The record is an 86-nucleotide RNA from Populus tomentosa, which matches "mir-160 microRNA precursor family" in Rfam. Pairs were carried over by alignment from the consensus structure, which was predicted with PFOLD. Rfam 15.1 lists 1,502 matches to the family in 247 species. Lineage of the source: Eukaryota > Tracheophyta > eudicotyledons > Gunneridae > Populus. The match comes from Rfam's covariance-model search (76 bits).
[Rfam]
RNA sequence: GUGUGCCUGGCUCCCUGCAUGCCAUUUGCGUAGCUCAUCAGAACGUCGGUGGCCUUGGUGGAUGGCGUGCAAGGAGUCAUGCAUGC
Numbered sequence: 001g002u003g004u005g006c007c008u009g010g011c012u013c014c015c016u017g018c019a020u021g022c023c024a025u026u027u028g029c030g031u032a033g034c035u036c037a038u039c040a041g042a043a044c045g046u047c048g049g050u051g052g053c054c055u056u057g058g059u060g061g062a063u064g065g066c067g068u069g070c071a072a073g074g075a076g077u078c079a080u081g082c083a084u085g086c
Stems, first nucleotide, its partner, number of pairs: 001086006008079007016071009027060003